[Rfam]
RNA sequence: CAAGCUGGUCAGGCAAUCGCUCUUUUUUAAUAAAAGGGAGGAAAGUCCGGGCUCCAUAGGGUAAAGUGCCAGGUAACGCCUGGGAGGCGUAAGCCUACGGAUAGUGCCACAGAAAAUAUACCGCCUUUUUUAAGGUAAGGGUGAAAUGGUGUGGUAAGAGCGCACCGCGCAACUGGCAACAGUUGUGGCAGGGAAAACCCCACUUGGAGCAAGACCAAAUAGGAACCCAUUCUCAUUUUAUAUGAGUACACAUGACCCGUGUGGGGUUCGGGUAGGUCGCUUGAGGCAUAUGGUGACGUAUGUCCUAGAUAAAUGAUUGUCCACGACAGAACCCGGCUUAUCGGCCAGCUUGCUUU
Numbered sequence: 001c002a003a004g005c006u007g008g009u010c011a012g013g014c015a016a017u018c019g020c021u022c023u024u025u026u027u028u029a030a031u032a033a034a035a036g037g038g039a040g041g042a043a044a045g046u047c048c049g050g051g052c053u054c055c056a057u058a059g060g061g062u063a064a065a066g067u068g069c070c071a072g073g074u075a076a077c078g079c080c081u082g083g084g085a086g087g088c089g090u091a092a093g094c095c096u097a098c099g100g101a102u103a104g105u106g107c108c109a110c111a112g113a114a115a116a117u118a119u120a121c122c123g124c125c126u127u128u129u130u131u132a133a134g135g136u137a138a139g140g141g142u143g144a145a146a147u148g149g150u151g152u153g154g155u156a157a158g159a160g161c162g163c164a165c166c167g168c169g170c171a172a173c174u175g176g177c178a179a180c181a182g183u184u185g186u187g188g189c190a191g192g193g194a195a196a197a198c199c200c201c202a203c204u205u206g207g208a209g210c211a212a213g214a215c216c217a218a219a220u221a222g223g224a225a226c227c228c229a230u231u232c233u234c235a236u237u238u239u240a241u242a243u244g245a246g247u248a249c250a251c252a253u254g255a256c257c258c259g260u261g262u263g264g265g266g267u268u269c270g271g272g273u274a275g276g277u278c279g280c281u282u283g284a285g286g287c288a289u290a291u292g293g294u295g296a297c298g299u300a301u302g303u304c305c306u307a308g309a310u311a312a313a314u315g316a317u318u319g320u321c322c323a324c325g326a327c328a329g330a331a332c333c334c335g336g337c338u339u340a341u342c343g344g345c346c347a348g349c350u351u352g353c354u355u356u
Base pairs, nucleotide, nucleotide: 001352002351003350004349005348006347007346008345009344010343011341012321013320014319015318016317017316018315020038021037022036023035024034025033026032043339044338045337047336048335049334050333051332052209053208054207055206059258060257061256062255064205065204066203067202068201069083070082071081072080073079084098085096086095087094088093099200100199104198105197107193108192121140122139123136124135125134126133127132148166149165150164151163152162153161167189168187169186170185171184172183173182174181175180213278214277215276216275223269224268225267226266227265228264249263250262251261252260253259285304286303287302288301289300290299291298292297
RNA: Bacterial RNase P class A